[Rfam]
RNA: pemK RNA
RNA sequence: ACAAUGAUACUUCUCUACGGAGCCGGUGGCGUACCCAGCGGGGGCGAGAACCCAUGA
Numbered sequence: 001a002c003a004a005u006g007a008u009a010c011u012u013c014u015c016u017a018c019g020g021a022g023c024c025g026g027u028g029g030c031g032u033a034c035c036c037a038g039c040g041g042g043g044g045c046g047a048g049a050a051c052c053c054a055u056g057a
Stems, first nucleotide, its partner, number of pairs: 012054001013022003023041003027037003042053003